RNA sequence: GGGAAGCAGGCCAACCUCGACGAUCUCCUCAGCACCUGAACGCCAAGGCUGGGGAGAUCCUCGAGGUUGGCCUGCUUUCC
Numbered sequence: 001g002g003g004a005a006g007c008a009g010g011c012c013a014a015c016c017u018c019g020a021c022g023a024u025c026u027c028c029u030c031a032g033c034a035c036c037u038g039a040a041c042g043c044c045a046a047g048g049c050u051g052g053g054g055a056g057a058u059c060c061u062c063g064a065g066g067u068u069g070g071c072c073u074g075c076u077u078u079c080c
Stems, first nucleotide, its partner, number of pairs: 001080002004077017022059007030051004

This 80-nucleotide sequence from Homo sapiens belongs to the Rfam family "mir-3150 microRNA precursor family".
The organism belongs to Homo, within Eukaryota.
The base pairs follow the family's consensus structure, which was predicted with RNAalifold.
Its family is annotated with miRNA-mediated post-transcriptional gene silencing and RISC complex in the Gene Ontology.